[Rfam]
The family of this 100-nucleotide RNA from Anaerobacterium chartisolvens is "pan motif". The source organism's lineage runs through Bacteria, Bacillati, Clostridia, Eubacteriales and Anaerobacterium. The family's consensus secondary structure is taken from published work. It scores 59 bits against the family's covariance model. By type it is a cis-regulatory element.

RNA sequence: ACGACGGCAUCAUGACUAUAAAUUGAGCCGUACGGUUUAGGAAAUAACUGCUUAAUCUUAAUAAAAGCUGCUUUGAUCCUUUAAGGACAGAGACGGGAAG
Number, nucleotide and partner (000 for none) at each position: 001a000002c034003g033004a031005c030006g029007g028008c027009a000010u026011c025012a000013u000014g000015a000016c000017u000018a000019u000020a000021a000022a000023u000024u000025g011026a010027g008028c007029c006030g005031u004032a000033c003034g002035g000036u000037u000038u000039a000040g000041g000042a000043a000044a000045u000046a000047a000048c000049u000050g000051c000052u000053u000054a000055a000056u000057c000058u000059u000060a000061a000062u000063a000064a000065a000066a000067g000068c096069u095070g094071c092072u091073u090074u089075g088076a000077u087078c086079c085080u000081u000082u000083a000084a000085g079086g078087a077088c075089a074090g073091a072092g071093a000094c070095g069096g068097g000098a000099a000100g000